[Rfam]
RNA: Fluoride riboswitch aptamer (crcB RNA motif)
RNA sequence: AAAAUAAAAGGUGAUGGAGCUCACCAUAAACUGCCAACUGGUUGGCUAAUGGCUCCUACGGAUAA
Numbered sequence: 001a002a003a004a005u006a007a008a009a010g011g012u013g014a015u016g017g018a019g020c021u022c023a024c025c026a027u028a029a030a031c032u033g034c035c036a037a038c039u040g041g042u043u044g045g046c047u048a049a050u051g052g053c054u055c056c057u058a059c060g061g062a063u064a065a
Base pairs, nucleotide, nucleotide: 010025011024012023013022016056017055018054019053020052021051033046034045035044036043